[Rfam]
RNA sequence: UAACCUAUUCAGCGAUGAAUACUUGAACAGUCAGAAGUCAGCAGAAGUCAUAGUACCUCGUCAACUCGAGAUGAUGAGGAAAGGAC
Numbered sequence: 001u002a003a004c005c006u007a008u009u010c011a012g013c014g015a016u017g018a019a020u021a022c023u024u025g026a027a028c029a030g031u032c033a034g035a036a037g038u039c040a041g042c043a044g045a046a047g048u049c050a051u052a053g054u055a056c057c058u059c060g061u062c063a064a065c066u067c068g069a070g071a072u073g074a075u076g077a078g079g080a081a082a083g084g085a086c
Stems, first nucleotide, its partner, number of pairs: 001025002006021006038045002047086003056079008
The family of this 86-nucleotide RNA sequence from Anaerobacillus arseniciselenatis is "Group II catalytic intron D1-D4-1". The match comes from Rfam's covariance-model search (66 bits).